[Rfam]
PyrR binding site: a 149-nucleotide sequence from Bacillus sp. FJAT-27986. By type it is a cis-regulatory element. The source organism's lineage runs through Bacteria, Bacillati, Bacilli, Caryophanales and Bacillus.

RNA sequence: AGAACCUUUAAGAGCAGUCCAGAGAGGCUGACAAGGUGGGCGAUACUUUGUUUGGAGAACGUAUUUAUACACAUAAUAUAUUAUUGUGUGAAUAAUACGGUUAUUUCUGACACCUUCCACUUGUCACUUUAUGGCAAGUGGUUUUUUUU
Numbered sequence: 001a002g003a004a005c006c007u008u009u010a011a012g013a014g015c016a017g018u019c020c021a022g023a024g025a026g027g028c029u030g031a032c033a034a035g036g037u038g039g040g041c042g043a044u045a046c047u048u049u050g051u052u053u054g055g056a057g058a059a060c061g062u063a064u065u066u067a068u069a070c071a072c073a074u075a076a077u078a079u080a081u082u083a084u085u086g087u088g089u090g091a092a093u094a095a096u097a098c099g100g101u102u103a104u105u106u107c108u109g110a111c112a113c114c115u116u117c118c119a120c121u122u123g124u125c126a127c128u129u130u131a132u133g134g135c136a137a138g139u140g141g142u143u144u145u146u147u148u149u
Base pairs, nucleotide, nucleotide: 004037005036006035007034008033015030016029017028018027019026065095066094067093068092070090071089072088073087074086075085076084077083117141118140119139120138121137122136123135124134125133126132